[Rfam]
RNA sequence: AUUUUGAUUUAAUCGCUAUAUUUGAAAAAUAAUAUAGAGGAAACUCCACGCUUGCACGACCUGUGAUGGUUGUAAUGAUUAUGCUAACUGAAAAAAUAAGGUUAGGCUGACUUUGGAGAAAAGUUAGACGGCAAAACUUAAUCUAAGGUAAUUUAUUGCUAUGAUGAUGUUUUUGAAAGUGCCAUAGAGACGAGAAAAAGGGAAACCUUUGAGAUGGAACGCGGUAAACCCCAUAAGCAAGAAACUCAAAUUUUGGUAGAGGAGUCGUUUCAAGGUAAUCAGAACUGAGAAACGGACAGUAUUUAUACUGUAGAUAGAUGGUUAAAACUAAACUUUUGUUUAGAACAGAACGUGGGUUAUGAUA
Dot-bracket structure: ...(..((((((((.((((((..........))))))....[[[.[[[[[(((((((((((......)))))).....(((((((((((..........))))))(((((((((.....)))))))).)((.((((....(((...(((((....)))))..)))....)))).....(((((.............(((((....)))))............)))..))))))))))))))...(((...........)))...(((((((.................)))))))((((((....))))))........))))))).((((((....)))))).......]]]]]]]].)...)